[Rfam]
RNA sequence: UCGUCGAUGACACCGGGUGAGAUGAAGUGGACGUGGGUGUCGAUGGCACCAGCGGUGAUGAUCUUGCCGUUGCCCGAGAUGAUCUCGGUGUCGGGGCCGAUGACGAGAUCGGGGUGCACACCGUCCAUCGUGUCGGGGUUCCCGGACUUGCCGAUUCCGGUGAUACGGCCGUCGCGGAUCCCGAUGUCCGCCUUGACCACACCCCAGUGGUCGACGAUCACCGCGCCGGUGACGACGGUGUCGGGCGCGCCCUGGGCGCGACCCACCCUGGACUGGCCCAUGGACUCGCGG
Numbered sequence: 001u002c003g004u005c006g007a008u009g010a011c012a013c014c015g016g017g018u019g020a021g022a023u024g025a026a027g028u029g030g031a032c033g034u035g036g037g038u039g040u041c042g043a044u045g046g047c048a049c050c051a052g053c054g055g056u057g058a059u060g061a062u063c064u065u066g067c068c069g070u071u072g073c074c075c076g077a078g079a080u081g082a083u084c085u086c087g088g089u090g091u092c093g094g095g096g097c098c099g100a101u102g103a104c105g106a107g108a109u110c111g112g113g114g115u116g117c118a119c120a121c122c123g124u125c126c127a128u129c130g131u132g133u134c135g136g137g138g139u140u141c142c143c144g145g146a147c148u149u150g151c152c153g154a155u156u157c158c159g160g161u162g163a164u165a166c167g168g169c170c171g172u173c174g175c176g177g178a179u180c181c182c183g184a185u186g187u188c189c190g191c192c193u194u195g196a197c198c199a200c201a202c203c204c205c206a207g208u209g210g211u212c213g214a215c216g217a218u219c220a221c222c223g224c225g226c227c228g229g230u231g232a233c234g235a236c237g238g239u240g241u242c243g244g245g246c247g248c249g250c251c252c253u254g255g256g257c258g259c260g261a262c263c264c265a266c267c268c269u270g271g272a273c274u275g276g277c278c279c280a281u282g283g284a285c286u287c288g289c290g291g
Stems, first nucleotide, its partner, number of pairs: 001291003005288003011162005016074005028051003033047001037044002055067003076151001079148001083144001088142001090140001092138001095134003102129002107125003111121001168277004174266001176264002179261002181258001182256001189225003194220002204213001227254003234250001238248003
This 291-nucleotide sequence from Streptomyces tsukubensis belongs to the Rfam family "5' ureB small RNA". The organism belongs to Streptomyces, within Bacteria. Rfam 15.1 lists 4,812 matches to the family in 4,480 species. Pairs were carried over by alignment from the consensus structure, which was predicted with mfold. The literature on the family includes a 2013 paper in J Bacteriol by Wen et al., "Helicobacter pylori 5'ureB-sRNA, a cis-encoded antisense small RNA, negatively regulates ureAB expression by transcription termination". The match comes from Rfam's covariance-model search (77 bits).